[Rfam]
RNA: Small Cajal body specific RNA ncR26
RNA sequence: UUUGAUAACCGGAGUUUGAUGCGCCAUAAAUGACAGACUUUGUGAUUACUGAGGGCUUUUGUUUUUA
Numbered sequence: 001u002u003u004g005a006u007a008a009c010c011g012g013a014g015u016u017u018g019a020u021g022c023g024c025c026a027u028a029a030a031u032g033a034c035a036g037a038c039u040u041u042g043u044g045a046u047u048a049c050u051g052a053g054g055g056c057u058u059u060u061g062u063u064u065u066u067a
Base pairs, nucleotide, nucleotide: 012064013063018060019059021057023056024055025054027048028047029046031045033043034042035041